[Rfam]
RNA: Sense overlapping transcript RNA 0042 (sot)
Organism: Natrinema halophilum
RNA sequence: AAGUAUCUCCGAGUCUCGCCACGGAUGGCGAUGAUAGGAGUAACGGCUAGUUGGCACAGCCUUCAACGUUCCUGUUUGACACGGAAGCUGGUGCGUUCGCACCGCAAGAACAGGUCACGUCGUAAACCACAAUAUCCCACCGUGGGAAUCCUCGCCCUUCAGGGCGGGGA
Numbered sequence: 001a002a003g004u005a006u007c008u009c010c011g012a013g014u015c016u017c018g019c020c021a022c023g024g025a026u027g028g029c030g031a032u033g034a035u036a037g038g039a040g041u042a043a044c045g046g047c048u049a050g051u052u053g054g055c056a057c058a059g060c061c062u063u064c065a066a067c068g069u070u071c072c073u074g075u076u077u078g079a080c081a082c083g084g085a086a087g088c089u090g091g092u093g094c095g096u097u098c099g100c101a102c103c104g105c106a107a108g109a110a111c112a113g114g115u116c117a118c119g120u121c122g123u124a125a126a127c128c129a130c131a132a133u134a135u136c137c138c139a140c141c142g143u144g145g146g147a148a149u150c151c152u153c154g155c156c157c158u159u160c161a162g163g164g165c166g167g168g169g170a
Base pairs, nucleotide, nucleotide: 003044004043007040008039009038010037013035014034015033016031017030018029019028020027021026045061046060047059048058064122066120067119068118069117071114072113073112074111075110076109077108090103091102092101093100094099135147136146137145138144149170150169151168152167153166154165155164156163157162